This 518-nucleotide part of an RNA from Methylophilales bacterium HTCC2181 belongs to the Rfam family "Bacterial large subunit ribosomal RNA". Gene Ontology terms of the family: structural constituent of ribosome and ribosome. The base pairs follow the family's consensus structure, which is taken from published work. The organism belongs to Nitrosomonadales, within Bacteria.

RNA sequence: GAAUAAGUGCAUAUGGUGAAUGCCUUGGCGAUUACAGGCGAUGAAGGACGUGGUAGUCUGCGAAAUUUUUCGGGGAGCUGACAAACAAGCUUUGAUCCGGAAGUGUCCGAAUGGGGAAACCCACCCGCAAGGGUAUCCAUCUCUGAAUACAUAGGAGAUGUGAAGCGAACCGAGUGAACUGAAACAUCUAAGUAACUCGAGGAAAAGAAAUCAACCGAGAUUCCGGAAGUAGUGGCGAGCGAAACCGGAACAGCCUGUUAUUUUUAGCACAUGCGUUAAUAGAACGGAAUGGAAAGUCCGGCCAAAGAGGGUGAUAGCCCCGUAUAUGAAAACCCGUGUGUGGAACUAGGAUAACGACAAGUAGGGCGGGACACGUGAAAUCCUGUCUGAAUAUGGGGGGACCAUCCUCCAAGGCUAAAUACUCGUAAUCGACCGAUAGUGAACUAGUACCGUGAGGGAAAGGUUAAAAGAACCCCGGAAGGGGAGUGAAAUAGAUCCUGAAACCGUAUGCAUACAAA
Number, nucleotide and partner (000 for none) at each position: 001g000002a000003a000004u000005a000006a000007g513008u512009g511010c510011a509012u508013a507014u506015g505016g504017u000018g000019a000020a000021u000022g498023c463024c462025u000026u000027g434028g433029c431030g430031a429032u428033u427034a426035c425036a423037g422038g166039c165040g000041a000042u000043g000044a000045a000046g108047g107048a106049c062050g061051u060052g000053g000054u000055a000056g000057u000058c000059u000060g051061c050062g049063a000064a000065a000066u000067u000068u102069u101070u100071c099072g098073g097074g096075g000076a000077g090078c089079u088080g000081a000082c000083a000084a000085a000086c000087a000088a079089g078090c077091u000092u000093u000094g000095a000096u074097c073098c072099g071100g070101a069102a068103g000104u000105g000106u048107c047108c046109g000110a000111a000112u000113g122114g121115g120116g000117a000118a000119a000120c115121c114122c113123a134124c133125c132126c131127g000128c000129a000130a000131g126132g125133g124134u123135a000136u163137c162138c160139a159140u158141c157142u156143c155144u154145g000146a000147a000148u000149a000150c000151a000152u000153a000154g144155g143156a142157g141158a140159u139160g138161u000162g137163a136164a000165g039166c038167g000168a000169a000170c201171c199172g198173a197174g196175u195176g000177a000178a000179c000180u000181g188182a187183a000184a000185c000186a000187u182188c181189u000190a000191a000192g000193u000194a000195a175196c174197u173198c172199g171200a000201g170202g000203a000204a000205a000206a000207g000208a000209a000210a000211u218212c217213a000214a000215c000216c000217g212218a211219g000220a000221u419222u249223c248224c247225g246226g245227a000228a000229g000230u000231a000232g240233u239234g000235g000236c000237g000238a000239g233240c232241g000242a000243a000244a000245c226246c225247g224248g223249a222250a000251c000252a416253g415254c414255c413256u000257g000258u000259u000260a352261u351262u350263u349264u348265u343266a000267g341268c340269a339270c338271a337272u336273g335274c000275g333276u332277u331278a000279a327280u326281a325282g000283a000284a000285c300286g299287g298288a297289a000290u000291g000292g000293a000294a000295a000296g000297u288298c287299c286300g285301g000302c000303c307304a000305a000306a000307g303308a000309g321310g320311g319312u000313g000314a000315u000316a000317g000318c000319c311320c310321c309322g000323u000324a000325u281326a280327u279328g000329a000330a000331a277332a276333c275334c000335c273336g272337u271338g270339u269340g268341u267342g000343g265344a000345a000346c000347u000348a264349g263350g262351a261352u260353a000354a000355c000356g000357a000358c000359a000360a000361g000362u000363a000364g388365g387366g386367c385368g384369g383370g382371a381372c000373a000374c000375g000376u000377g000378a000379a000380a000381u371382c370383c369384u368385g367386u366387c365388u364389g000390a000391a000392u000393a000394u000395g410396g409397g408398g407399g406400g000401a000402c000403c000404a000405u000406c399407c398408u397409c396410c395411a000412a000413g255414g254415c253416u252417a000418a000419a221420u000421a000422c037423u036424c000425g035426u034427a033428a032429u031430c030431g029432a000433c028434c027435g000436a000437u000438a000439g000440u000441g000442a000443a000444c000445u000446a000447g000448u000449a000450c457451c456452g000453u000454g000455a000456g451457g450458g000459a000460a000461a000462g024463g023464u000465u000466a000467a000468a000469a000470g000471a000472a000473c484474c483475c482476c481477g000478g000479a000480a000481g476482g475483g474484g473485a000486g000487u000488g000489a000490a000491a000492u000493a000494g000495a000496u000497c000498c022499u000500g000501a000502a000503a000504c016505c015506g014507u013508a012509u011510g010511c009512a008513u007514a000515c000516a000517a000518a000